[Rfam]
Rfam assigns this 75-nucleotide sequence from Jaculus jaculus to the family "Small nucleolar RNA SNORD59". The family is grouped with related families in Rfam's "SNORD59 clan". The match comes from Rfam's covariance-model search (80 bits).

RNA sequence: CCUUCUAUGAUGAUUUUGCCAAAAUGACUUUCGUUCUUCUGAGAUUGCUGAAGCCACAAUUAGGUGCUGAGAGGG
Dot-bracket structure: (((.(.................................................................).)))